[Rfam]
RNA sequence: UGACACCGAGCGGGAGAGACCCGGGGCAGCACGACCGGGCGCCGAAGGAGCAAAUCCCUUCCCGGAACCUCUCAGGCACCAGGACCGCUCGGUACAG
Number, nucleotide and partner (000 for none) at each position: 001u000002g000003a000004c000005a000006c092007c091008g090009a089010g088011c087012g086013g085014g000015a000016g000017a000018g000019a000020c039021c038022c037023g036024g000025g000026g000027c000028a000029g000030c000031a000032c000033g000034a000035c000036c023037g022038g021039g020040c000041g077042c076043c075044g073045a072046a000047g000048g071049a070050g069051c000052a000053a000054a000055u000056c000057c000058c000059u000060u000061c000062c000063c000064g000065g000066a000067a000068c000069c050070u049071c048072u045073c044074a000075g043076g042077c041078a000079c000080c000081a000082g000083g000084a000085c013086c012087g011088c010089u009090c008091g007092g006093u000094a000095c000096a000097g000

Rfam assigns this 97-nucleotide RNA from Pseudonocardia autotrophica to the family "Glycine riboswitch aptamer". Pairs were carried over by alignment from the consensus structure. A search with the family's covariance model found it, with a score of 74 bits. From the family's description: This family represents the bacterial glycine riboswitch.